RNA sequence: AAGCGAGCGCGAAAAAACACAGUCCGGUUGGUAGUCCGGGCGCAUGGCCAUGAUGAUCCGCACAUGUACGUGUCAGUAACCUUCCCCCCCUCGGGAUGUCCGUCGCUCUCGUCAUUUUU
Numbered sequence: 001a002a003g004c005g006a007g008c009g010c011g012a013a014a015a016a017a018c019a020c021a022g023u024c025c026g027g028u029u030g031g032u033a034g035u036c037c038g039g040g041c042g043c044a045u046g047g048c049c050a051u052g053a054u055g056a057u058c059c060g061c062a063c064a065u066g067u068a069c070g071u072g073u074c075a076g077u078a079a080c081c082u083u084c085c086c087c088c089c090c091u092c093g094g095g096a097u098g099u100c101c102g103u104c105g106c107u108c109u110c111g112u113c114a115u116u117u118u119u
Stems, first nucleotide, its partner, number of pairs: 004111004009106003022041006042073005083096004
The record is a 119-nucleotide RNA sequence from Brevibacillus centrosporus, which matches "azaaromatic riboswitch aptamer (yjdF RNA)" in Rfam.